[Rfam]
About this RNA
Shown here is a 108-nucleotide RNA from Soonwooa buanensis, a member of the family "Flavo-1 RNA".

RNA sequence: CUGCAAUAGGGAUAGAAGCGGCAUCCUUUGGCUUGGCGCGAGGCGGCGGAGCGCAGCGGAGCCGUCCGAGCAGCCAAGUUAAAGAUAGAGCGAAUAGCCCGACCUUGC
Number, nucleotide and partner (000 for none) at each position: 001c000002u000003g000004c000005a000006a000007u000008a000009g100010g099011g098012a000013u096014a095015g000016a000017a000018g091019c090020g000021g000022c000023a086024u085025c084026c000027u000028u000029u081030g080031g079032c078033u077034u076035g075036g074037c000038g000039c000040g000041a000042g000043g000044c000045g000046g000047c000048g000049g000050a000051g000052c000053g000054c000055a000056g000057c000058g000059g000060a000061g000062c000063c000064g000065u000066c000067c000068g000069a000070g000071c000072a000073g000074c036075c035076a034077a033078g032079u031080u030081a029082a000083a000084g025085a024086u023087a000088g000089a000090g019091c018092g000093a000094a000095u014096a013097g000098c011099c010100c009101g000102a000103c000104c000105u000106u000107g000108c000
The organism belongs to Soonwooa, within Bacteria. The base pairs follow the family's consensus structure, which is taken from published work. The match comes from Rfam's covariance-model search (50 bits).